This 299-nucleotide RNA from Aedes aegypti belongs to the Rfam family "RNase MRP".
The source organism's lineage runs through Eukaryota, Opisthokonta, Pterygota, Aedes and Stegomyia.
RNA sequence: UGGUUCUUUCUAGCUCAAUUCUCGUGGUUACAUUCGAGUUUCUGAUAACUCUCAUCGUAGCAACCUUUGCUCACCAUGGGUAAAGUCCCCAGGCCGAGGACAGAAAGUGUCAGGAUCUAAAACUUUGGUCCCUAUUGCAUGGUCACGUCAAAACUGACCCGAUGCAAACAUGCCAAAUCGCAAUAAAGUUAUGUCUGAGAGUGUCCGGGGAGCAGGGAGACGGCGACAGUGGCGACACGUGUCAGUUUGUCAGGUUCUAUUCCGGGACACAACACAAUGGGGCUUACUAAGAGGGAACU
Number, nucleotide and partner (000 for none) at each position: 001u000002g299003g298004u297005u296006c295007u294008u293009u292010c291011u290012a000013g000014c199015u198016c197017a196018a194019u193020u000021c000022u079023c078024g077025u076026g075027g074028u073029u000030a000031c000032a000033u000034u000035c000036g051037a050038g049039u048040u047041u000042c000043u000044g000045a000046u000047a040048a039049c038050u037051c036052u000053c000054a000055u000056c000057g000058u000059a000060g000061c000062a000063a000064c000065c000066u000067u000068u000069g000070c000071u000072c000073a028074c027075c026076a025077u024078g023079g022080g000081u000082a000083a285084a284085g283086u000087c282088c281089c280090c279091a000092g000093g000094c000095c000096g000097a000098g000099g111100a110101c109102a108103g000104a000105a000106a000107g000108u102109g101110u100111c099112a000113g000114g131115a000116u000117c128118u127119a126120a125121a000122a000123c000124u000125u120126u119127g118128g117129u000130c000131c114132c000133u000134a000135u168136u167137g165138c164139a163140u000141g000142g000143u000144c000145a000146c000147g000148u000149c000150a000151a000152a000153a000154c000155u000156g000157a000158c000159c000160c000161g000162a000163u139164g138165c137166a000167a136168a135169c000170a000171u000172g000173c000174c000175a000176a000177a000178u000179c000180g000181c000182a000183a000184u000185a000186a000187a000188g000189u000190u000191a000192u000193g019194u018195c000196u017197g016198a015199g014200a000201g270202u269203g268204u267205c266206c265207g000208g000209g000210g000211a000212g000213c000214a000215g000216g000217g000218a000219g000220a000221c000222g000223g000224c000225g000226a000227c000228a000229g000230u000231g000232g000233c000234g000235a000236c000237a000238c000239g000240u000241g000242u000243c000244a000245g000246u000247u000248u000249g000250u000251c000252a000253g000254g000255u000256u000257c000258u000259a000260u000261u000262c000263c000264g000265g206266g205267a204268c203269a202270c201271a000272a000273c000274a000275c000276a000277a000278u000279g090280g089281g088282g087283c085284u084285u083286a000287c000288u000289a000290a011291g010292a009293g008294g007295g006296a005297a004298c003299u002